[Rfam]
This 144-nucleotide RNA sequence from Polaribacter glomeratus belongs to the Rfam family "Flavo-1 RNA". The organism belongs to Polaribacter, within Bacteria.
Nucleotides: 144
Base pairs, nucleotide, nucleotide: 009136010135011134013132014131018127019126023122024121025120029117030116031115032114033113034112035111
Number, partner (000 for none) and nucleotide at each position: 001000u002000u003000g004000u005000g006000u007000u008000a009136g010135g011134g012000a013132u014131u015000g016000a017000a018127a019126u020000g021000g022000c023122a024121u025120c026000c027000u028000u029117u030116u031115u032114a033113u034112g035111c036000u037000u038000g039000a040000c041000u042000u043000u044000a045000c046000u047000a048000g049000u050000u051000a052000u053000a054000g055000a056000a057000u058000a059000u060000a061000a062000u063000a064000u065000a066000c067000u068000u069000u070000u071000u072000a073000c074000u075000g076000a077000u078000u079000u080000u081000a082000a083000u084000g085000c086000a087000u088000a089000a090000u091000c092000a093000a094000c095000u096000g097000u098000a099000u100000g101000u102000u103000u104000a105000a106000a107000u108000u109000c110000u111035g112034c113033a114032u115031a116030a117029a118000a119000a120025g121024a122023u123000a124000u125000a126019a127018u128000g129000a130000a131014a132013a133000g134011c135010c136009c137000g138000a139000c140000c141000a142000c143000g144000c